[Rfam]
RNA sequence: AUGAAGGUGCAUAAAAACACGUCUCGGUUGGUAGUCCGAGAGCGCAAACGCGUCAGUAACCUUCCCUCCAGGUCGUCCAUUGCAAUCUUUGAAAAG
Numbered sequence: 001a002u003g004a005a006g007g008u009g010c011a012u013a014a015a016a017a018c019a020c021g022u023c024u025c026g027g028u029u030g031g032u033a034g035u036c037c038g039a040g041a042g043c044g045c046a047a048a049c050g051c052g053u054c055a056g057u058a059a060c061c062u063u064c065c066c067u068c069c070a071g072g073u074c075g076u077c078c079a080u081u082g083c084a085a086u087c088u089u090u091g092a093a094a095a096g
Stems, first nucleotide, its partner, number of pairs: 004088001006086001008084004022041006042053004064072002
This 96-nucleotide sequence from Enterococcus canis belongs to the Rfam family "azaaromatic riboswitch aptamer (yjdF RNA)".
The source organism's lineage runs through Bacteria, Bacillati, Bacilli, Lactobacillales and Enterococcus.
It scores 72 bits against the family's covariance model.